[Rfam]
A member of the RNA family "Lysine riboswitch aptamer" from Asaccharospora irregularis, 172 nucleotides long.

RNA sequence: AUUAAUGGUAGAGGCGCAUUGUUAAUAAGUAAUUUUGUGGAGGUAAGCACGGUGAAGCAAAAUGAAAGGUAAGAAUGCCGAAAUAUAUAAAUUAAGCUUUAAGUUUAUAUAUUGGGGUCAUAUAAAAUAUGUAUGACACUGUCACAAUAAUUUGUGGAGAGCUAUCUUUUAG
Numbered sequence: 001a002u003u004a005a006u007g008g009u010a011g012a013g014g015c016g017c018a019u020u021g022u023u024a025a026u027a028a029g030u031a032a033u034u035u036u037g038u039g040g041a042g043g044u045a046a047g048c049a050c051g052g053u054g055a056a057g058c059a060a061a062a063u064g065a066a067a068g069g070u071a072a073g074a075a076u077g078c079c080g081a082a083a084u085a086u087a088u089a090a091a092u093u094a095a096g097c098u099u100u101a102a103g104u105u106u107a108u109a110u111a112u113u114g115g116g117g118u119c120a121u122a123u124a125a126a127a128u129a130u131g132u133a134u135g136a137c138a139c140u141g142u143c144a145c146a147a148u149a150a151u152u153u154g155u156g157g158a159g160a161g162c163u164a165u166c167u168u169u170u171a172g
Stems, first nucleotide, its partner, number of pairs: 007166005016078005022072003032063007082113012114140002117137008142157006
Taxonomically the source falls in Asaccharospora irregularis (Bacteria, Bacillati, Bacillota, Peptostreptococcales).